[Rfam]
RNA sequence: UGGCGGGGGAGCACCACAAGGGGUGAAGCUUGCGGUUUAAUUGGAGUCAACGCCGGAAAUCUCACCGGGAGCGACAGCAGUUUGAAGGCCAGAUUAAAGGUCUUGCCAGACGAGCUGAGAGGAGGUGCAUGGCCGUCGCCAGUUCGUGCCGUGAGGUGUCCUGUUAAGUCAGGCAACGAUCGAGACCCGCGUCCUCUGUUGCCACUGGUUUUGAGCCAGGCACACUGAGGAGACCGCCGCUGAUAAAGCGGAGGAAGGAGCGGGCCACGGCAGGUCAGUAUGCCCCGAAUCUCCCGGGCCACACGCGAGCUGCAAUGGCAGGUACAAUGGGUUCCGACCUCGAAAGGGGGAGGCAAUCUCGAAAGCCUGCCGUAGUUGGGAUUGAGGGUUGAAACUCACCCUCAUGAACAUGGAAUCCCUAGUAAUCGCGUGUCACUAGCGCGCGGUGAAUACGUCCCUGCUCCUUGCACACACCGCCCGUCGUUCCACCCGAGCGACUCUUGGGUGAGGCGUGGUCUUUAUUGGCUGCGUCGAAUCUUAGUUUUGUAAGGGGGGAAAAGUCGUAACAAGGUGGCCGUAGGGGAACCUGCGGCCGGAUCA
Numbered sequence: 001u002g003g004c005g006g007g008g009g010a011g012c013a014c015c016a017c018a019a020g021g022g023g024u025g026a027a028g029c030u031u032g033c034g035g036u037u038u039a040a041u042u043g044g045a046g047u048c049a050a051c052g053c054c055g056g057a058a059a060u061c062u063c064a065c066c067g068g069g070a071g072c073g074a075c076a077g078c079a080g081u082u083u084g085a086a087g088g089c090c091a092g093a094u095u096a097a098a099g100g101u102c103u104u105g106c107c108a109g110a111c112g113a114g115c116u117g118a119g120a121g122g123a124g125g126u127g128c129a130u131g132g133c134c135g136u137c138g139c140c141a142g143u144u145c146g147u148g149c150c151g152u153g154a155g156g157u158g159u160c161c162u163g164u165u166a167a168g169u170c171a172g173g174c175a176a177c178g179a180u181c182g183a184g185a186c187c188c189g190c191g192u193c194c195u196c197u198g199u200u201g202c203c204a205c206u207g208g209u210u211u212u213g214a215g216c217c218a219g220g221c222a223c224a225c226u227g228a229g230g231a232g233a234c235c236g237c238c239g240c241u242g243a244u245a246a247a248g249c250g251g252a253g254g255a256a257g258g259a260g261c262g263g264g265c266c267a268c269g270g271c272a273g274g275u276c277a278g279u280a281u282g283c284c285c286c287g288a289a290u291c292u293c294c295c296g297g298g299c300c301a302c303a304c305g306c307g308a309g310c311u312g313c314a315a316u317g318g319c320a321g322g323u324a325c326a327a328u329g330g331g332u333u334c335c336g337a338c339c340u341c342g343a344a345a346g347g348g349g350g351a352g353g354c355a356a357u358c359u360c361g362a363a364a365g366c367c368u369g370c371c372g373u374a375g376u377u378g379g380g381a382u383u384g385a386g387g388g389u390u391g392a393a394a395c396u397c398a399c400c401c402u403c404a405u406g407a408a409c410a411u412g413g414a415a416u417c418c419c420u421a422g423u424a425a426u427c428g429c430g431u432g433u434c435a436c437u438a439g440c441g442c443g444c445g446g447u448g449a450a451u452a453c454g455u456c457c458c459u460g461c462u463c464c465u466u467g468c469a470c471a472c473a474c475c476g477c478c479c480g481u482c483g484u485u486c487c488a489c490c491c492g493a494g495c496g497a498c499u500c501u502u503g504g505g506u507g508a509g510g511c512g513u514g515g516u517c518u519u520u521a522u523u524g525g526c527u528g529c530g531u532c533g534a535a536u537c538u539u540a541g542u543u544u545u546g547u548a549a550g551g552g553g554g555g556a557a558a559a560g561u562c563g564u565a566a567c568a569a570g571g572u573g574g575c576c577g578u579a580g581g582g583g584a585a586c587c588u589g590c591g592g593c594c595g596g597a598u599c600a
Stems, first nucleotide, its partner, number of pairs: 001471002003468003007465007016455002020419005025313001027311008035302002041056004065297007075117004080111001087107003091103003121286002124284004130280002132275003135271004142181001144179004148157003160173004187263004192231005198225001202220002206218005234254002237251005317371007329360003334353002338349004378409001383404007425447008474570001476567001479563002482560001484557004489552003494547004500541002503538004509532009572595010
Dot-bracket structure: (((((.(((((((..((..((((((.((((((((((....((((........))))........(((((((...((((.(......(((.(((.......))).)))...)..))))...((.((((..(((((((((...(.(((((((....)))..((((......))))..)))).).....((((.(((((.(...((..(((((...)))))))....).)))))..((.(((((.....))))).)).....))))....)))).)))...))))))))....)))))))...)).)))))))).)...(((((((.....(((..((..((((....))))..))....)))....)))))))......(....(((((((........)))))))....).....))))).....((((((((.......))))))))......))...)))))))))).))..(.(..((.(.((((.(((..((((..((.((((..(((((((((......)))))))))..)))).))..))))..))).))))..).))...)..).((((((((((....)))))))))).....

The family of this 600-nucleotide part of an RNA from uncultured crenarchaeote MCG is "Archaeal small subunit ribosomal RNA". Clan: SSU clan. It is one of the family's seed sequences. On this family, see Yusupov et al., Science 2001: "Crystal structure of the ribosome at 5.5 A resolution". The base pairs follow the family's consensus structure, which is taken from published work. Its family is annotated with ribosome and structural constituent of ribosome in the Gene Ontology.